[Rfam]
RNA sequence: AACAGUCUUUGAGGCGGGGUGUGAUUCCCUACCGGCGGUAUAGCCCGCAAGCCGAAAGGCAAGAUCCGGUUGGAUUCCGGAGCCGACAGUACAGUCUGGAUGAGAAAAGACAAAA
Numbered sequence: 001a002a003c004a005g006u007c008u009u010u011g012a013g014g015c016g017g018g019g020u021g022u023g024a025u026u027c028c029c030u031a032c033c034g035g036c037g038g039u040a041u042a043g044c045c046c047g048c049a050a051g052c053c054g055a056a057a058g059g060c061a062a063g064a065u066c067c068g069g070u071u072g073g074a075u076u077c078c079g080g081a082g083c084c085g086a087c088a089g090u091a092c093a094g095u096c097u098g099g100a101u102g103a104g105a106a107a108a109g110a111c112a113a114a115a
Stems, first nucleotide, its partner, number of pairs: 005111006017029003031095002033085002035048004043083002053059001065081005087098003
Rfam assigns this 115-nucleotide sequence from Propionispira arboris to the family "FMN riboswitch aptamer (RFN element)". Pairs were carried over by alignment from the consensus structure, which is taken from published work.